[Rfam]
RNA sequence: GGUGACGGUCAGCUUUGCGGGGUGGGCAUUCAGCCUCGGGUCACACCGCUGUGCAAACCCAUGCAAAACUGACUGCACAC
Numbered sequence: 001g002g003u004g005a006c007g008g009u010c011a012g013c014u015u016u017g018c019g020g021g022g023u024g025g026g027c028a029u030u031c032a033g034c035c036u037c038g039g040g041u042c043a044c045a046c047c048g049c050u051g052u053g054c055a056a057a058c059c060c061a062u063g064c065a066a067a068a069c070u071g072a073c074u075g076c077a078c079a080c
Stems, first nucleotide, its partner, number of pairs: 006075007014067006020060002023056001026054004032050003
RNA: mir-19 microRNA precursor family
Organism: Cyprinus carpio